[Rfam]
The family of this 93-nucleotide RNA sequence from Cajanus cajan is "MIR862_2 microRNA precursor family". Its family is annotated with RISC complex and miRNA-mediated post-transcriptional gene silencing in the Gene Ontology. It scores 84 bits against the family's covariance model.
RNA sequence: ACUCUUCUUGUUCCCUCAAAGGCUUCCAGUAUUCAUGUCAUAAUUAACUUGCUUACAUGAAUGCUGGAAGUCUUUGAAAGGAACUUGAAAGCA
Numbered sequence: 001a002c003u004c005u006u007c008u009u010g011u012u013c014c015c016u017c018a019a020a021g022g023c024u025u026c027c028a029g030u031a032u033u034c035a036u037g038u039c040a041u042a043a044u045u046a047a048c049u050u051g052c053u054u055a056c057a058u059g060a061a062u063g064c065u066g067g068a069a070g071u072c073u074u075u076g077a078a079a080g081g082a083a084c085u086u087g088a089a090a091g092c093a
Stems, first nucleotide, its partner, number of pairs: 006088002010084005016077008025068010